[Rfam]
RNA sequence: CGGAACGACAAAGCGCCAGGACUAUUUUCCGAACGGUGAGGAAUAAUAGUUGACGAGGACGGAGGUUAUCGAUAUUUCGGCGGAUGCCUCCCGGUUGUACAUCCCAAUCGUUAUGCUUUUUCUUAAAACAAUGAGGUAACUUAUUGGACAAAGGAAAAAGGAACAGGAUGA
Numbered sequence: 001c002g003g004a005a006c007g008a009c010a011a012a013g014c015g016c017c018a019g020g021a022c023u024a025u026u027u028u029c030c031g032a033a034c035g036g037u038g039a040g041g042a043a044u045a046a047u048a049g050u051u052g053a054c055g056a057g058g059a060c061g062g063a064g065g066u067u068a069u070c071g072a073u074a075u076u077u078c079g080g081c082g083g084a085u086g087c088c089u090c091c092c093g094g095u096u097g098u099a100c101a102u103c104c105c106a107a108u109c110g111u112u113a114u115g116c117u118u119u120u121u122c123u124u125a126a127a128a129c130a131a132u133g134a135g136g137u138a139a140c141u142u143a144u145u146g147g148a149c150a151a152a153g154g155a156a157a158a159a160g161g162a163a164c165a166g167g168a169u170g171a
Base pairs, nucleotide, nucleotide: 020051021050022049023048024047025046026045061091062090063089064088065087069080070079071078072077092110093109094108095107096106097105116160117159118158119157120156121155129146130145131144132143133142134141135140
RNA: glmS glucosamine-6-phosphate activated ribozyme aptamer